[Rfam]
RNA: Small nucleolar RNA U54
Organism: Brassica rapa
RNA sequence: GGCUCUGUGAUUACUUUGCCAAUUUGGCAGUAUACGCUAUUCUGAAUACAGUAUGAAAGAUACAUAUUUUAAUACUAUAUGAGAGCC
Numbered sequence: 001g002g003c004u005c006u007g008u009g010a011u012u013a014c015u016u017u018g019c020c021a022a023u024u025u026g027g028c029a030g031u032a033u034a035c036g037c038u039a040u041u042c043u044g045a046a047u048a049c050a051g052u053a054u055g056a057a058a059g060a061u062a063c064a065u066a067u068u069u070u071a072a073u074a075c076u077a078u079a080u081g082a083g084a085g086c087c
Base pairs, nucleotide, nucleotide: 001087002086003085004084005083